[Rfam]
Nucleotides: 071
Stems, first nucleotide, its partner, number of pairs: 010039004016071001018069005023035001025033001043060002046057004
Number, partner (000 for none) and nucleotide at each position: 001000a002000g003000a004000g005000g006000u007000u008000g009000a010039g011038g012037u013036u014000a015000c016071a017000g018069c019068a020067g021066a022065a023035g024000c025033g026000c027000u028000c029000a030000u031000g032000g033025c034000a035023c036013a037012g038011c039010c040000u041000g042000u043060u044059a045000g046057a047056u048055u049054c050000c051000a052000a053000u054049g055048a056047a057046u058000g059044u060043g061000c062000a063000a064000a065022u066021u067020c068019u069018g070000a071016u